[Rfam]
RNA sequence: AGAGUAGGGAUUGUGUGUAUCGGCAUUGUGCUUGAAUUAGUGCACUUGUUGCUGAAAGAGUUCCUUGUUAUAUAUAUAUUUUUUGAUUGAUUCUGGGAAGGUGGGUACUUGUGUUUCAUCCCAUCCAUUGAUUCUUAACAAUCAUCUUCCCCACAUCU
Numbered sequence: 001a002g003a004g005u006a007g008g009g010a011u012u013g014u015g016u017g018u019a020u021c022g023g024c025a026u027u028g029u030g031c032u033u034g035a036a037u038u039a040g041u042g043c044a045c046u047u048g049u050u051g052c053u054g055a056a057a058g059a060g061u062u063c064c065u066u067g068u069u070a071u072a073u074a075u076a077u078a079u080u081u082u083u084u085g086a087u088u089g090a091u092u093c094u095g096g097g098a099a100g101g102u103g104g105g106u107a108c109u110u111g112u113g114u115u116u117c118a119u120c121c122c123a124u125c126c127a128u129u130g131a132u133u134c135u136u137a138a139c140a141a142u143c144a145u146c147u148u149c150c151c152c153a154c155a156u157c158u
Base pairs, nucleotide, nucleotide: 004068005067006066007065008064009063010062015045016044017043018042019041020040095151096150097149098148099147100146101145102144103143104142109138110137111136
Overview:
Shown here is a 158-nucleotide RNA from Tetracentron sinense, a member of the family "small nucleolar RNA snoR135". On this family, see Chen and Wu, Nucleic Acids Res 2009: "Mining small RNA sequencing data: a new approach to identify small nucleolar RNAs in Arabidopsis". The base pairs follow the family's consensus structure, which was predicted with RNAalifold. Rfam classes the family as an H/ACA-box small nucleolar RNA. Its family is annotated with RNA processing and nucleolus in the Gene Ontology.